[Rfam]
RNA: Glycine riboswitch aptamer
Organism: Amycolatopsis arida
RNA sequence: CCAGGCCACUCUGGAAAGCAGGCGCCCGGCGCGCCUCACCCAAGGUGAAAGCGGCACCACGUGCCGUGAAACUCUCAGGUGCCAUGACAGAGGGGGAGUU
Numbered sequence: 001c002c003a004g005g006c007c008a009c010u011c012u013g014g015a016a017a018g019c020a021g022g023c024g025c026c027c028g029g030c031g032c033g034c035c036u037c038a039c040c041c042a043a044g045g046u047g048a049a050a051g052c053g054g055c056a057c058c059a060c061g062u063g064c065c066g067u068g069a070a071a072c073u074c075u076c077a078g079g080u081g082c083c084a085u086g087a088c089a090g091a092g093g094g095g096g097a098g099u100u
Stems, first nucleotide, its partner, number of pairs: 006095002009092005020036004038080003042075001045074001047072001051067005